Notes: Rfam assigns this 64-nucleotide RNA from Sphingopyxis panaciterrulae to the family "terC RNA".

RNA sequence: UAUGCGGGCCGGGCCCCUCUGGCGUUGGCGGGAUUUUCCCGCGGCGUGAUGUCGGACCGCAUCG
Numbered sequence: 001u002a003u004g005c006g007g008g009c010c011g012g013g014c015c016c017c018u019c020u021g022g023c024g025u026u027g028g029c030g031g032g033a034u035u036u037u038c039c040c041g042c043g044g045c046g047u048g049a050u051g052u053c054g055g056a057c058c059g060c061a062u063c064g
Stems, first nucleotide, its partner, number of pairs: 006058002009055004022047005029041005
Lineage of the source: Bacteria > Pseudomonadati > Sphingomonadales > Sphingopyxidaceae > Sphingopyxis. Rfam classes the family as a cis-regulatory element.